[Rfam]
RNA sequence: UUCGCCCGAGAACGCCCUGAUCGUGGAUUCUGCGUCCGGCACGGGCGCCUCAUCCACCCCGUGCCGCACUCCGACCCGCCCGGUUGUCCCCCCCGGGCGGGUC
Numbered sequence: 001u002u003c004g005c006c007c008g009a010g011a012a013c014g015c016c017c018u019g020a021u022c023g024u025g026g027a028u029u030c031u032g033c034g035u036c037c038g039g040c041a042c043g044g045g046c047g048c049c050u051c052a053u054c055c056a057c058c059c060c061g062u063g064c065c066g067c068a069c070u071c072c073g074a075c076c077c078g079c080c081c082g083g084u085u086g087u088c089c090c091c092c093c094c095g096g097g098c099g100g101g102u103c
Base pairs, nucleotide, nucleotide: 002020003019004018026071027070032069034067035066038065039064040063041062042061073103074102075101076100077099078098079097080096081095082094083093
RNA: Rhizobiales-2 RNA